[Rfam]
RNA sequence: CUGACUAAGACGCAUGGGUCGACGUUCGUGCAACGAGCCCUUUCCCUCUGCUGCAACAUGAGCAGCAGGUGGAUGCGCCAUUGUCAG
Numbered sequence: 001c002u003g004a005c006u007a008a009g010a011c012g013c014a015u016g017g018g019u020c021g022a023c024g025u026u027c028g029u030g031c032a033a034c035g036a037g038c039c040c041u042u043u044c045c046c047u048c049u050g051c052u053g054c055a056a057c058a059u060g061a062g063c064a065g066c067a068g069g070u071g072g073a074u075g076c077g078c079c080a081u082u083g084u085c086a087g
Stems, first nucleotide, its partner, number of pairs: 001087005009079001011077003016040003023035004043073003047069007
This 87-nucleotide RNA sequence belongs to the Rfam family "L4-Archaeoglobi ribosomal protein leades".
The base pairs follow the family's consensus structure, which is taken from published work.
The literature on the family includes a 2020 paper in BMC Microbiol by Eckert and Weinberg, "Discovery of 20 novel ribosomal leader candidates in bacteria and archaea".